[Rfam]
Shown here is a 73-nucleotide RNA from Methanothrix soehngenii, a member of the family "tRNA". The family's RNA type in Rfam is transfer RNA.
RNA sequence: GGGCUUGUAGCUCAGCUGGUAGAGCGCCGCCUUUGCAAGGCGGAGGCCCUGGGUCCGAAUCCCAGCAAGUCCA
Numbered sequence: 001g002g003g004c005u006u007g008u009a010g011c012u013c014a015g016c017u018g019g020u021a022g023a024g025c026g027c028c029g030c031c032u033u034u035g036c037a038a039g040g041c042g043g044a045g046g047c048c049c050u051g052g053g054u055c056c057g058a059a060u061c062c063c064a065g066c067a068a069g070u071c072c073a
Stems, first nucleotide, its partner, number of pairs: 001072007010025004027043005049065005